This 86-nucleotide RNA from Pantoea agglomerans belongs to the Rfam family "RpsF leader". On this family, see Fu et al., RNA 2014: "Bacterial RNA motif in the 5' UTR of rpsF interacts with an S6:S18 complex". The source organism's lineage runs through Bacteria, Pseudomonadati, Pseudomonadota, Gammaproteobacteria and Pantoea. Rfam's curators write: Conserved and widely distributed to many bacterial species RNA structure. It precedes operon containing rpsF, which encodes ribosomal protein S6. Its family is annotated with protein binding and negative regulation of translation in the Gene Ontology. The pairing is the family consensus, mapped onto this sequence. The family's RNA type in Rfam is cis-regulatory leader.
RNA sequence: GACACAGCCUAUAACGUUCCUUGCUUCCAUGGGCCGCGGUUGACCCCGACAGGAGGCUGAAUAAUCCGUAAGGAGCAAUUUCGAUG
Numbered sequence: 001g002a003c004a005c006a007g008c009c010u011a012u013a014a015c016g017u018u019c020c021u022u023g024c025u026u027c028c029a030u031g032g033g034c035c036g037c038g039g040u041u042g043a044c045c046c047c048g049a050c051a052g053g054a055g056g057c058u059g060a061a062u063a064a065u066c067c068g069u070a071a072g073g074a075g076c077a078a079u080u081u082c083g084a085u086g
Base pairs, nucleotide, nucleotide: 016076017075018074019073020072021071022070023057024056025055026054027053028052031046032045033044